[Rfam]
RNA sequence: UUCAAGUAGGGUGAUGGCGUUCCACCUAAUUAACCGCCUUUCGGAAGGACGAUGACGCCUACAGGUUG
Numbered sequence: 001u002u003c004a005a006g007u008a009g010g011g012u013g014a015u016g017g018c019g020u021u022c023c024a025c026c027u028a029a030u031u032a033a034c035c036g037c038c039u040u041u042c043g044g045a046a047g048g049a050c051g052a053u054g055a056c057g058c059c060u061a062c063a064g065g066u067u068g
Stems, first nucleotide, its partner, number of pairs: 010026004016059006037048003
Record summary:
A member of the RNA family "Fluoride riboswitch aptamer (crcB RNA motif)" from Niastella vici, 68 nucleotides long. The base pairs follow the family's consensus structure, which is taken from published work. A search with the family's covariance model found it, with a score of 47 bits.